[Rfam]
RNA sequence: GGUAGAGGAACUUCGACUAACUACCGACACGUCCUGUGUCGAACGUCGAAGUCACCACAUCCUGUGGA
Numbered sequence: 001g002g003u004a005g006a007g008g009a010a011c012u013u014c015g016a017c018u019a020a021c022u023a024c025c026g027a028c029a030c031g032u033c034c035u036g037u038g039u040c041g042a043a044c045g046u047c048g049a050a051g052u053c054a055c056c057a058c059a060u061c062c063u064g065u066g067g068a
Stems, first nucleotide, its partner, number of pairs: 011051007026040005055067004
RNA: Bacillaceae-1 RNA